[Rfam]
RNA sequence: AUUUUUGGAUAAUCGCGUGGGAUAGAGAUUCCAUGAGGAAAGUCCAUGCUAGCACGGGCUGUGAUGCCCGUAGUGUUUGUGCUAGGUGAAACGAUAAGCCUAGGGACGAGAGAUCGUUACGGCGGACAAAAAGGCUACGUUUUCGAAUAGGCCUGACUAGUCCUGAAAGUGCCACAGUGACGGAGUUUUCCUGGAAACGGGAAAAGUGGAACGCGGUAAACCCCUCAAGCUAGCAACCCAAACUUUGGUCGGGGCAUGGGAUGCGUGGAAGACGAACAUAGCAUCCUGACUGGAAACAGUAGACAGAUGAUUAUCGAAGGAGGCGAGACCUAGUCGCUUCUGGAACAAAACAUGGCUUAUAGAA
Numbered sequence: 001a002u003u004u005u006u007g008g009a010u011a012a013u014c015g016c017g018u019g020g021g022a023u024a025g026a027g028a029u030u031c032c033a034u035g036a037g038g039a040a041a042g043u044c045c046a047u048g049c050u051a052g053c054a055c056g057g058g059c060u061g062u063g064a065u066g067c068c069c070g071u072a073g074u075g076u077u078u079g080u081g082c083u084a085g086g087u088g089a090a091a092c093g094a095u096a097a098g099c100c101u102a103g104g105g106a107c108g109a110g111a112g113a114u115c116g117u118u119a120c121g122g123c124g125g126a127c128a129a130a131a132a133g134g135c136u137a138c139g140u141u142u143u144c145g146a147a148u149a150g151g152c153c154u155g156a157c158u159a160g161u162c163c164u165g166a167a168a169g170u171g172c173c174a175c176a177g178u179g180a181c182g183g184a185g186u187u188u189u190c191c192u193g194g195a196a197a198c199g200g201g202a203a204a205a206g207u208g209g210a211a212c213g214c215g216g217u218a219a220a221c222c223c224c225u226c227a228a229g230c231u232a233g234c235a236a237c238c239c240a241a242a243c244u245u246u247g248g249u250c251g252g253g254g255c256a257u258g259g260g261a262u263g264c265g266u267g268g269a270a271g272a273c274g275a276a277c278a279u280a281g282c283a284u285c286c287u288g289a290c291u292g293g294a295a296a297c298a299g300u301a302g303a304c305a306g307a308u309g310a311u312u313a314u315c316g317a318a319g320g321a322g323g324c325g326a327g328a329c330c331u332a333g334u335c336g337c338u339u340c341u342g343g344a345a346c347a348a349a350a351c352a353u354g355g356c357u358u359a360u361a362g363a364a
Stems, first nucleotide, its partner, number of pairs: 004364003007360001008315007016035006040358003044355005049233005054071006077228003081224001082103006104120001105118005121223002124163004132154004139148003169221002171217003186205008237253003257288007289300004319341008